[Rfam]
Bacterial RNase P class A: a 351-nucleotide RNA sequence from Clostridium sp. CAG:964.
RNA sequence: UGAGUAAACCGAGCGACUGCGGGCUGCAAAGCCGAAAGGCUGCACCCGAGGAAAGUCCGGGCUCCACAGGGCAAGAAUAACGGCUAACAGCCGCCGGGGGUGACCCUAGGGAAAGUGCAACAGAGAUAUACCGCCGGUAUUUUACCGGUAAGGGUGGAAAGGCGAGGUAAGAGCUCACCGGCGUUAAGGAGACUUAACGGCCCUGUAAACCCUAUUCGGAGCAACACCGUGGAAAGACAUUAUGCAUUUGCCCGAUGCGUCUUAGGAGGUGGCAUUGAGCAGUUUCGGCAACGGACUGCCAAGAUAGAUAGUCGUUCAAGACAGAACUCGGCUUAUAGGUUUAGUCACUCU
Numbered sequence: 001u002g003a004g005u006a007a008a009c010c011g012a013g014c015g016a017c018u019g020c021g022g023g024c025u026g027c028a029a030a031g032c033c034g035a036a037a038g039g040c041u042g043c044a045c046c047c048g049a050g051g052a053a054a055g056u057c058c059g060g061g062c063u064c065c066a067c068a069g070g071g072c073a074a075g076a077a078u079a080a081c082g083g084c085u086a087a088c089a090g091c092c093g094c095c096g097g098g099g100g101u102g103a104c105c106c107u108a109g110g111g112a113a114a115g116u117g118c119a120a121c122a123g124a125g126a127u128a129u130a131c132c133g134c135c136g137g138u139a140u141u142u143u144a145c146c147g148g149u150a151a152g153g154g155u156g157g158a159a160a161g162g163c164g165a166g167g168u169a170a171g172a173g174c175u176c177a178c179c180g181g182c183g184u185u186a187a188g189g190a191g192a193c194u195u196a197a198c199g200g201c202c203c204u205g206u207a208a209a210c211c212c213u214a215u216u217c218g219g220a221g222c223a224a225c226a227c228c229g230u231g232g233a234a235a236g237a238c239a240u241u242a243u244g245c246a247u248u249u250g251c252c253c254g255a256u257g258c259g260u261c262u263u264a265g266g267a268g269g270u271g272g273c274a275u276u277g278a279g280c281a282g283u284u285u286c287g288g289c290a291a292c293g294g295a296c297u298g299c300c301a302a303g304a305u306a307g308a309u310a311g312u313c314g315u316u317c318a319a320g321a322c323a324g325a326a327c328u329c330g331g332c333u334u335a336u337a338g339g340u341u342u343a344g345u346c347a348c349u350c351u
Stems, first nucleotide, its partner, number of pairs: 001347003005343006011336001012316007020048004025044004053334003057331005062221004070253002075217005081093004095109001096107004110212002115210002117206003131153002133149007161179002164176003181201001182199007225271004235262004244258005279299004284295004

A search with the family's covariance model found it, with a score of 263 bits. The family's RNA type in Rfam is ribozyme. The organism belongs to Clostridium, within Bacteria.